This 154-nucleotide RNA sequence from Gossypium aridum belongs to the Rfam family "Small nucleolar RNA snoR145". Rfam classes the family as an H/ACA-box small nucleolar RNA. A reference for the family is Chen and Wu (2009), "Mining small RNA sequencing data: a new approach to identify small nucleolar RNAs in Arabidopsis", Nucleic Acids Res. The family has 19 seed sequences and 286 matches in Rfam 15.1.
RNA sequence: AUGCGAAGGUCCCAGCAGAAAGGUGAGAACUCUAUGAAUUGAGACCUUUCUAACAAGUAAGCAUAAAAAUGCCUUCGCAAAUUCAAUUUCGCCGAAUCGUAGGAUGCCCAAUUAAUCCAUUUUUGGAGCGUCUGGAACCCUCGGCUACAUUCAC
Numbered sequence: 001a002u003g004c005g006a007a008g009g010u011c012c013c014a015g016c017a018g019a020a021a022g023g024u025g026a027g028a029a030c031u032c033u034a035u036g037a038a039u040u041g042a043g044a045c046c047u048u049u050c051u052a053a054c055a056a057g058u059a060a061g062c063a064u065a066a067a068a069a070u071g072c073c074u075u076c077g078c079a080a081a082u083u084c085a086a087u088u089u090c091g092c093c094g095a096a097u098c099g100u101a102g103g104a105u106g107c108c109c110a111a112u113u114a115a116u117c118c119a120u121u122u123u124u125g126g127a128g129c130g131u132c133u134g135g136a137a138c139c140c141u142c143g144g145c146u147a148c149a150u151u152c153a154c
Base pairs, nucleotide, nucleotide: 003078004077005076006075007074008073009072013018025050026049027048030043031042032041034039091145092144093143094142095141103132104131106129107128108126109125110124111123